A member of the RNA family "COG3860 RNA" from Chromobacterium violaceum, 54 nucleotides long. Rfam's curators put it in the seed alignment. It is annotated as a cis-regulatory element.
RNA sequence: GGGUCAACAGUUCACCCAGGCGUCGCCGGCGAUUUCGCCACGCUAAACCUGUCU
Numbered sequence: 001g002g003g004u005c006a007a008c009a010g011u012u013c014a015c016c017c018a019g020g021c022g023u024c025g026c027c028g029g030c031g032a033u034u035u036c037g038c039c040a041c042g043c044u045a046a047a048c049c050u051g052u053c054u
Stems, first nucleotide, its partner, number of pairs: 001017004028039004